[Rfam]
RNA sequence: UGUGGAAAGAAGAAGUACCCACUUCUCACCUGAUUAGCUAGAGCUGAUAGGUUAAACGUCACUAUCGUUACGACGAUAUUGUUAAUGUGAUUGUGAUUUAAACGUGGGCGCUUACUAAGUGCUUACGUUUUUCUUUUUUU
Numbered sequence: 001u002g003u004g005g006a007a008a009g010a011a012g013a014a015g016u017a018c019c020c021a022c023u024u025c026u027c028a029c030c031u032g033a034u035u036a037g038c039u040a041g042a043g044c045u046g047a048u049a050g051g052u053u054a055a056a057c058g059u060c061a062c063u064a065u066c067g068u069u070a071c072g073a074c075g076a077u078a079u080u081g082u083u084a085a086u087g088u089g090a091u092u093g094u095g096a097u098u099u100a101a102a103c104g105u106g107g108g109c110g111c112u113u114a115c116u117a118a119g120u121g122c123u124u125a126c127g128u129u130u131u132u133c134u135u136u137u138u139u140u
Stems, first nucleotide, its partner, number of pairs: 011026006028052003034047005103127010
Rfam assigns this 140-nucleotide RNA sequence from Turicibacter sp. H121 to the family "Ribosomal protein L20 leader". A reference for the family is Zengel and Lindahl (1994), "Diverse mechanisms for regulating ribosomal protein synthesis in Escherichia coli", Prog Nucleic Acid Res Mol Biol. NCBI's taxonomy places the organism under Bacteria, Bacillati, Bacillota, Erysipelotrichales, Turicibacter.